[Rfam]
RNA sequence: AUACUCCCUCCGUCCCACAAUAUAAGACGUUUUUGCAAGCUAUGUUAGUUUGCAAAACGUCUUAUAUUAUGGGACGGAGGGAGUAA
Number, nucleotide and partner (000 for none) at each position: 001a000002u000003a084004c083005u082006c000007c080008c079009u078010c077011c076012g000013u074014c073015c072016c071017a070018c000019a068020a067021u066022a065023u064024a063025a062026g061027a060028c059029g058030u057031u000032u056033u055034u054035g053036c052037a051038a050039g049040c048041u047042a000043u000044g000045u000046u000047a041048g040049u039050u038051u037052g036053c035054a034055a033056a032057a030058c029059g028060u027061c026062u025063u024064a023065u022066a021067u020068u019069a000070u017071g016072g015073g014074a013075c000076g011077g010078a009079g008080g007081g000082a005083g004084u003085a000086a000
Rfam assigns this 86-nucleotide sequence from Triticum aestivum to the family "MIR1120/MIR1122 microRNA precursor family".
The match comes from Rfam's covariance-model search (91 bits).
The source organism's lineage runs through Eukaryota, Spermatophyta, Poaceae, Pooideae and Triticum.
Gene Ontology terms of the family: miRNA-mediated post-transcriptional gene silencing and RISC complex.
Rfam 15.1 lists 44,765 matches to the family in 8 species.